[Rfam]
RNA sequence: AGAGUAGGCGAGGCGGUUGCAAAUUCUUUUCCAAGAAUUUGAGGAAAGUCCGGGCUUCCCAAAGACCAAACUUGCUGGGUAACUCCCAGUGCGCGCGAGCGUGAGGAUAGUGCCACAGAAAGAUACCGCCAAGUGAUUUUGGAUUGAGGAUUCUAGAUUUUGGGUUAAAUCCAAAAUCGCAAAUCUAAAAAUCUGAAACUUUGGUAAGGGUGCAAAGGUGCGGUAAGAGCGCACCAGCAGCAUCGAGAGGUGCUGGCUCGGUAAACCCCGGUUGGAAGCAAGGCAGUGGAAUUACGGUUGGUCUUUUACCAAUUCCGACUAUGAGCCGCUUGAGGCAUCUGGUAACAGGUGUCCCAGAUAGAUAACUGCCGUCUAAGAUAGAGAUGCUAUUGUAGUCUCUCUAUUGGAGAUAACAGAACCCGGCUUAUGUCCGACUCUCUCA
Numbered sequence: 001a002g003a004g005u006a007g008g009c010g011a012g013g014c015g016g017u018u019g020c021a022a023a024u025u026c027u028u029u030u031c032c033a034a035g036a037a038u039u040u041g042a043g044g045a046a047a048g049u050c051c052g053g054g055c056u057u058c059c060c061a062a063a064g065a066c067c068a069a070a071c072u073u074g075c076u077g078g079g080u081a082a083c084u085c086c087c088a089g090u091g092c093g094c095g096c097g098a099g100c101g102u103g104a105g106g107a108u109a110g111u112g113c114c115a116c117a118g119a120a121a122g123a124u125a126c127c128g129c130c131a132a133g134u135g136a137u138u139u140u141g142g143a144u145u146g147a148g149g150a151u152u153c154u155a156g157a158u159u160u161u162g163g164g165u166u167a168a169a170u171c172c173a174a175a176a177u178c179g180c181a182a183a184u185c186u187a188a189a190a191a192u193c194u195g196a197a198a199c200u201u202u203g204g205u206a207a208g209g210g211u212g213c214a215a216a217g218g219u220g221c222g223g224u225a226a227g228a229g230c231g232c233a234c235c236a237g238c239a240g241c242a243u244c245g246a247g248a249g250g251u252g253c254u255g256g257c258u259c260g261g262u263a264a265a266c267c268c269c270g271g272u273u274g275g276a277a278g279c280a281a282g283g284c285a286g287u288g289g290a291a292u293u294a295c296g297g298u299u300g301g302u303c304u305u306u307u308a309c310c311a312a313u314u315c316c317g318a319c320u321a322u323g324a325g326c327c328g329c330u331u332g333a334g335g336c337a338u339c340u341g342g343u344a345a346c347a348g349g350u351g352u353c354c355c356a357g358a359u360a361g362a363u364a365a366c367u368g369c370c371g372u373c374u375a376a377g378a379u380a381g382a383g384a385u386g387c388u389a390u391u392g393u394a395g396u397c398u399c400u401c402u403a404u405u406g407g408a409g410a411u412a413a414c415a416g417a418a419c420c421c422g423g424c425u426u427a428u429g430u431c432c433g434a435c436u437c438u439c440u441c442a
Stems, first nucleotide, its partner, number of pairs: 001438005007432002011428001012370007020041009046426003050423005055278004064305002069273003073270002075089005090104001091102004105268002110266002112262003126209002128205006217235006237257001238255007282327003285322001288316006296310003300306001334353008

This 442-nucleotide RNA sequence from Calothrix sp. C42_A2020_038 belongs to the Rfam family "Bacterial RNase P class A". The source organism's lineage runs through Bacteria, Cyanobacteriota, Cyanophyceae, Calotrichaceae and Calothrix. The family's RNA type in Rfam is ribozyme. Pairs were carried over by alignment from the consensus structure, which is taken from published work.